The family of this 71-nucleotide RNA is "skipping-rope RNA". Rfam classes the family as a small RNA.
[Rfam]
RNA sequence: AAGAGAAGAGGACAGAACAGGCAUCUGUCGCCCAUUGUGGAGAUGUAGGGUACGCCUUCCUACCUUCUCUU
Numbered sequence: 001a002a003g004a005g006a007a008g009a010g011g012a013c014a015g016a017a018c019a020g021g022c023a024u025c026u027g028u029c030g031c032c033c034a035u036u037g038u039g040g041a042g043a044u045g046u047a048g049g050g051u052a053c054g055c056c057u058u059c060c061u062a063c064c065u066u067c068u069c070u071u
Stems, first nucleotide, its partner, number of pairs: 001071008011029005019057004031040001045063005

The base pairs follow the family's consensus structure, which is taken from published work.